[Rfam]
RNA sequence: GAAGGAGCAAUAAACUCUUUCUUGUUCUAUCAAGAGGGGUUAUUGCUCCUUUAUUU
Numbered sequence: 001g002a003a004g005g006a007g008c009a010a011u012a013a014a015c016u017c018u019u020u021c022u023u024g025u026u027c028u029a030u031c032a033a034g035a036g037g038g039g040u041u042a043u044u045g046c047u048c049c050u051u052u053a054u055u056u
Stems, first nucleotide, its partner, number of pairs: 001052013019036006
Description:
The family of this 56-nucleotide sequence from Scutellaria baicalensis is "Plastid-psbA-3 3UTR RNA". From the family's description: Plastid psbA-3 is a non-coding RNA (ncRNA) present in plastids. It was identified in inverted repeat sequences in the 3 prime untranslate region (3UTR) of photosystem II quinone-binding protein (psbA). The source organism's lineage runs through Eukaryota, Streptophytina, Lamiales, Scutellarioideae and Scutellaria. On this family, see Richter et al., Plant Commun 2023: "Retrograde signaling in plants: A critical review focusing on the GUN pathway and beyond". Rfam's curators put it in the seed alignment.